Record summary: Shown here is a 98-nucleotide RNA sequence from Acer yangbiense, a member of the family "Small nucleolar RNA Z103". Rfam 15.1 lists 2,844 matches to the family in 233 species. A search with the family's covariance model found it, with a score of 98 bits. The family's RNA type in Rfam is C/D-box small nucleolar RNA. Rfam links the family to the GO terms nucleolus and RNA processing.

[Rfam]
Nucleotides: 098
Stems, first nucleotide, its partner, number of pairs: 001098005
Number, partner (000 for none) and nucleotide at each position: 001098a002097u003096g004095g005094g006000c007000g008000u009000g010000a011000u012000g013000a014000u015000u016000a017000u018000u019000u020000c021000c022000c023000c024000a025000g026000a027000u028000g029000a030000u031000c032000g033000a034000a035000g036000u037000u038000g039000a040000u041000u042000a043000a044000a045000c046000u047000g048000a049000g050000c051000g052000a053000u054000u055000u056000u057000u058000u059000u060000c061000u062000c063000u064000g065000u066000u067000u068000u069000c070000a071000g072000a073000g074000a075000a076000u077000c078000c079000a080000a081000g082000c083000c084000a085000g086000a087000a088000u089000u090000a091000u092000g093000a094005u095004c096003c097002a098001u